[Rfam]
RNA sequence: GUCUCCUGUGCCUGCUGCACUGAUAAUCAGUGUUCUCUUCUAGCUGGCUCAGUUCAGCAGGAACAGGAG
Numbered sequence: 001g002u003c004u005c006c007u008g009u010g011c012c013u014g015c016u017g018c019a020c021u022g023a024u025a026a027u028c029a030g031u032g033u034u035c036u037c038u039u040c041u042a043g044c045u046g047g048c049u050c051a052g053u054u055c056a057g058c059a060g061g062a063a064c065a066g067g068a069g
Stems, first nucleotide, its partner, number of pairs: 003069004008064002011061003015057003019053005027047005

The family of this 69-nucleotide RNA from Scleropages formosus is "mir-24 microRNA precursor family". The organism belongs to Scleropages, within Eukaryota. The match comes from Rfam's covariance-model search (71 bits). This family represents the microRNA (miRNA) mir-24 family. miRNAs are transcribed as ~70nt precursors (modelled here) and subsequently processed by the Dicer enzyme to give a ~22nt product. In this case the mature sequence comes from the 3' arm of the precursor. A reference for the family is Lagos-Quintana et al. (2001), "Identification of novel genes coding for small expressed RNAs", Science.